[Rfam]
RNA sequence: AAAUUCCUAUUCAGGGAAAGGGCAAAGCCACCCUACCUGAAAUCGAACCUUGGGUCUGUAAAGGUAACGAUACAGAUUAAGCGUAGGCAGAGCGACGUUCAGGCCGUAACGCAAGUGAAGCUAUUGAGCCUCGUUAGAACAACCGAUGGCCGACGGAGUCGAAUAUCCGGAAGGCUACAGUAGAUUUCCGCUAUUGGCGAGGAAAUUGGAGACCUCGGCGGGGUCUGAGUACA
Numbered sequence: 001a002a003a004u005u006c007c008u009a010u011u012c013a014g015g016g017a018a019a020g021g022g023c024a025a026a027g028c029c030a031c032c033c034u035a036c037c038u039g040a041a042a043u044c045g046a047a048c049c050u051u052g053g054g055u056c057u058g059u060a061a062a063g064g065u066a067a068c069g070a071u072a073c074a075g076a077u078u079a080a081g082c083g084u085a086g087g088c089a090g091a092g093c094g095a096c097g098u099u100c101a102g103g104c105c106g107u108a109a110c111g112c113a114a115g116u117g118a119a120g121c122u123a124u125u126g127a128g129c130c131u132c133g134u135u136a137g138a139a140c141a142a143c144c145g146a147u148g149g150c151c152g153a154c155g156g157a158g159u160c161g162a163a164u165a166u167c168c169g170g171a172a173g174g175c176u177a178c179a180g181u182a183g184a185u186u187u188c189c190g191c192u193a194u195u196g197g198c199g200a201g202g203a204a205a206u207u208g209g210a211g212a213c214c215u216c217g218g219c220g221g222g223g224u225c226u227g228a229g230u231a232c233a
Base pairs, nucleotide, nucleotide: 012039013038014037015036020033021032022031028197043091044090048087049086050085051083052082053078054077055076056075057074058073059072060071063068125227126225128224129223130222131221132220133219143218144217145216146215148213149175150174151173154169155168156167157166181209183207184206185205186204187203188202189201
Dot-bracket structure: ...........((((....(((.....[..)))..))))...((...(((((((((((((..(....)..))))))))...)).)))..)).................................((.((((((.........((((.((((..((((........))))...))).....(.(((((((.......]...))))))).)...).))))))))))).)......
Group II catalytic intron D1-D4-6: a 233-nucleotide sequence from Desulfosporosinus sp. HMP52. Rfam describes the family as follows. Group II introns are found in rRNA, tRNA and mRNA of organelles in fungi, plants and protists, and also in mRNA in bacteria. It scores 131 bits against the family's covariance model.